Annotation:
The family of this 48-nucleotide RNA sequence from Nakamurella flavida is "L31-Actinobacteria ribosomal protein leader". Taxonomically the source falls in Nakamurella (Bacteria, Actinomycetota, Actinomycetes, Nakamurellaceae). The match comes from Rfam's covariance-model search (54 bits). The literature on the family includes a 2020 paper in BMC Microbiol by Eckert and Weinberg, "Discovery of 20 novel ribosomal leader candidates in bacteria and archaea". Rfam classes the family as a cis-regulatory leader. The base pairs follow the family's consensus structure, which is taken from published work.
RNA sequence: CCGGCUCCGGUUCACGUUUCGCCCACCUGGGGGAGCGACCCGGCGGCC
Numbered sequence: 001c002c003g004g005c006u007c008c009g010g011u012u013c014a015c016g017u018u019u020c021g022c023c024c025a026c027c028u029g030g031g032g033g034a035g036c037g038a039c040c041c042g043g044c045g046g047c048c
Stems, first nucleotide, its partner, number of pairs: 003048003007043004015037006022030002